[Rfam]
RNA sequence: GAGUGUUUACAGCUCUUUUUGAAUUUGUGUAGUAGGUCUUCCAGUUUUCACCAGAAGGCCCUA
Numbered sequence: 001g002a003g004u005g006u007u008u009a010c011a012g013c014u015c016u017u018u019u020u021g022a023a024u025u026u027g028u029g030u031a032g033u034a035g036g037u038c039u040u041c042c043a044g045u046u047u048u049c050a051c052c053a054g055a056a057g058g059c060c061c062u063a
Base pairs, nucleotide, nucleotide: 035060036059037058038057039056040055041054044051045050

U7 small nuclear RNA: a 63-nucleotide RNA sequence from Molossus molossus. Lineage of the source: Eukaryota > Euteleostomi > Tetrapoda > Chiroptera > Molossus. A search with the family's covariance model found it, with a score of 58 bits.